This 126-nucleotide sequence from Octodon degus belongs to the Rfam family "Small nucleolar RNA SNORA27". The source organism's lineage runs through Eukaryota, Opisthokonta, Teleostomi, Euteleostomi and Octodon. From the family's description: ACA27 is a member of the H/ACA class of snoRNA that guide the sites of modification of uridines to pseudouridines.
[Rfam]
RNA sequence: GCACCCCCUGUCACUUUGCCAAAGGACUUAAAUCUUUAUUAGUCAUUCAAGUGGAACAAAAGAAACAUCCUUUUCAAACUCAGGCAAGUUCAAUGUUUGUCUUGUAAACUUUCAGGGAAAAUACAU
Dot-bracket structure: ................................(.(...((.(....).))...).)...........(.((((.......(((((((((.....)))))))).).........)))).).......
Numbered sequence: 001g002c003a004c005c006c007c008c009u010g011u012c013a014c015u016u017u018g019c020c021a022a023a024g025g026a027c028u029u030a031a032a033u034c035u036u037u038a039u040u041a042g043u044c045a046u047u048c049a050a051g052u053g054g055a056a057c058a059a060a061a062g063a064a065a066c067a068u069c070c071u072u073u074u075c076a077a078a079c080u081c082a083g084g085c086a087a088g089u090u091c092a093a094u095g096u097u098u099g100u101c102u103u104g105u106a107a108a109c110u111u112u113c114a115g116g117g118a119a120a121a122u123a124c125a126u
Stems, first nucleotide, its partner, number of pairs: 033056001035054001039050002042047001068119001070117004081104001082102008

Rfam 15.1 lists 819 matches to the family in 543 species.
It is annotated as an H/ACA-box small nucleolar RNA.